[Rfam]
RNA: msiK RNA
Organism: Serinibacter salmoneus
Nucleotides: 059
Base pairs, nucleotide, nucleotide: 009051010050011049012048013047014046015045027044028043029042030041031040032039
Number, partner (000 for none) and nucleotide at each position: 001000u002000g003000c004000u005000g006000c007000c008000a009051c010050u011049c012048u013047u014046c015045a016000c017000a018000a019000c020000g021000g022000a023000u024000c025000g026000u027044c028043c029042g030041g031040c032039a033000c034000g035000u036000a037000c038000c039032u040031g041030c042029c043028g044027g045015u046014g047013a048012a049011g050010g051009g052000a053000a054000g055000u056000u057000u058000g059000u